[Rfam]
RNA sequence: AUGCUCUAGCUGGUAAACGGGAACCAAAUCGUGACAUUCUAUAAUGAUUUGGUCCCCUUCAACCAGCCGUAGCAC
Numbered sequence: 001a002u003g004c005u006c007u008a009g010c011u012g013g014u015a016a017a018c019g020g021g022a023a024c025c026a027a028a029u030c031g032u033g034a035c036a037u038u039c040u041a042u043a044a045u046g047a048u049u050u051g052g053u054c055c056c057c058u059u060c061a062a063c064c065a066g067c068c069g070u071a072g073c074a075c
Stems, first nucleotide, its partner, number of pairs: 003073003009067006017059001020055003024052007
RNA: mir-133 microRNA precursor family
Organism: Apostichopus japonicus